[Rfam]
RNA: mir-5928 microRNA precursor family
RNA sequence: GGCGCAAUUCUGAAGUAGAGUGGUUUAGUAGGGUCAGAUGAUCCCCUAAUCUACUCCACUUCAAAUUUGGGUCC
Numbered sequence: 001g002g003c004g005c006a007a008u009u010c011u012g013a014a015g016u017a018g019a020g021u022g023g024u025u026u027a028g029u030a031g032g033g034u035c036a037g038a039u040g041a042u043c044c045c046c047u048a049a050u051c052u053a054c055u056c057c058a059c060u061u062c063a064a065a066u067u068u069g070g071g072u073c074c
Stems, first nucleotide, its partner, number of pairs: 001073003005069003009065001011063006018056006025049004032043004